[Rfam]
RNA sequence: UCUACCUGCCUUUCAGGCAUCCUCUCCCAAGACUUUUCCAGCCCGGUUGGUUCGCCAGCCGGGCUUUUUUUCUUGCGCC
Numbered sequence: 001u002c003u004a005c006c007u008g009c010c011u012u013u014c015a016g017g018c019a020u021c022c023u024c025u026c027c028c029a030a031g032a033c034u035u036u037u038c039c040a041g042c043c044c045g046g047u048u049g050g051u052u053c054g055c056c057a058g059c060c061g062g063g064c065u066u067u068u069u070u071u072c073u074u075g076c077g078c079c
Base pairs, nucleotide, nucleotide: 008018009017010016011015041064042063043062044061045060046059047058048057049056
Rfam assigns this 79-nucleotide RNA from Erythrobacter sp. SD-21 to the family "Makes More Granules Regulator RNA (mmgR)". About the family: SuhB later renamed mmgR (makes more granules regulator) was a putative non-coding RNA found multiple times in the Agrobacterium tumefaciens genome and related alpha-proteobacteria. The sequence is in the family's curated seed alignment. Lineage of the source: Bacteria > Pseudomonadati > Pseudomonadota > Alphaproteobacteria > Erythrobacter.